[Rfam]
RNA sequence: GGUUUCCGUUGGUAUAAAUCCAAUCACUUGAAUUAAAGGUGAGAAAAAAUUCUCCAUUGGUAGCAAAGGGUUAUCCAUUAAGCGGAGGAAAUUU
Numbered sequence: 001g002g003u004u005u006c007c008g009u010u011g012g013u014a015u016a017a018a019u020c021c022a023a024u025c026a027c028u029u030g031a032a033u034u035a036a037a038g039g040u041g042a043g044a045a046a047a048a049a050u051u052c053u054c055c056a057u058u059g060g061u062a063g064c065a066a067a068g069g070g071u072u073a074u075c076c077a078u079u080a081a082g083c084g085g086a087g088g089a090a091a092u093u094u
Stems, first nucleotide, its partner, number of pairs: 009023004052087004056078002059075006
The family of this 94-nucleotide sequence from Phelipanche ramosa is "Plastid-rps12 3UTR RNA". Rfam describes the family as follows. Plastid rpl20 is a non-coding RNA (ncRNA) recognised in plastids. It was found in the three prime untranslated region (3UTR) of rps12 gene, its 3UTR location sugest a role in transcript maduration. The family's consensus secondary structure was predicted with LocARNA. Rfam 15.1 lists 1,710 matches to the family in 1,426 species.